[Rfam]
Small nucleolar RNA SNORA75: a 134-nucleotide RNA from Sander lucioperca. On this family, see Ganot et al., Genes Dev 1997: "The family of box ACA small nucleolar RNAs is defined by an evolutionarily conserved secondary structure and ubiquitous sequence elements essential for RNA accumulation". About the family: U23 belongs to the H/ACA class of snoRNAs. snoRNAs bind a number of proteins (including dyskerin, Gar1p and Nop10p in the case of the H/ACA class) to form snoRNP complexes. This class are thought to guide the sites of modification of uridines to pseudouridines by forming direct base pairing interactions with substrate RNAs. Targets include ribosomal and spliceosomal RNAs as well as the Trypanosoma spliced leader RNA (SL RNA) as possibly other, still unknown cellular RNAs. NCBI's taxonomy places the organism under Eukaryota, Eumetazoa, Euteleostomi, Clupeocephala, Sander.
RNA sequence: ACCUUCUCAUGAGCUCCUCUUAAUCUUACCCAUGAUUAUGCAUGGAUUCGCACGAGAAGCAGAGUCAAUGUACAGUUAGAACAAGCUCACUCUACUCUCAUAUGGGUGUUGCCUAUGUCUGUUGUGCAACAAGU
Numbered sequence: 001a002c003c004u005u006c007u008c009a010u011g012a013g014c015u016c017c018u019c020u021u022a023a024u025c026u027u028a029c030c031c032a033u034g035a036u037u038a039u040g041c042a043u044g045g046a047u048u049c050g051c052a053c054g055a056g057a058a059g060c061a062g063a064g065u066c067a068a069u070g071u072a073c074a075g076u077u078a079g080a081a082c083a084a085g086c087u088c089a090c091u092c093u094a095c096u097c098u099c100a101u102a103u104g105g106g107u108g109u110u111g112c113c114u115a116u117g118u119c120u121g122u123u124g125u126g127c128a129a130c131a132a133g134u
Base pairs, nucleotide, nucleotide: 003059004058005057006056007055008054013051014050015046016045017044021038022037023036024035025034070127071126072125073124074123075122090106091105093104094103